[Rfam]
RNA sequence: GGGCGAUUGGCGCAGUUGGUAGCGCGCUUCCCUGACACGGAAGAGGUCAUCAGUUCAAGUCUGGUAUCGCCCA
Numbered sequence: 001g002g003g004c005g006a007u008u009g010g011c012g013c014a015g016u017u018g019g020u021a022g023c024g025c026g027c028u029u030c031c032c033u034g035a036c037a038c039g040g041a042a043g044a045g046g047u048c049a050u051c052a053g054u055u056c057a058a059g060u061c062u063g064g065u066a067u068c069g070c071c072c073a
Base pairs, nucleotide, nucleotide: 001072002071003070004069005068006067007066010025011024012023013022027043028042029041030040031039049065050064051063052062053061
Rfam assigns this 73-nucleotide RNA from Micropruina glycogenica to the family "tRNA". The organism belongs to Micropruina, within Bacteria. Rfam's curators write: Transfer RNA (tRNA) molecules are approximately 80 nucleotides in length. Its family is annotated with triplet codon-amino acid adaptor activity in the Gene Ontology. It is annotated as a transfer RNA. The match comes from Rfam's covariance-model search (67 bits).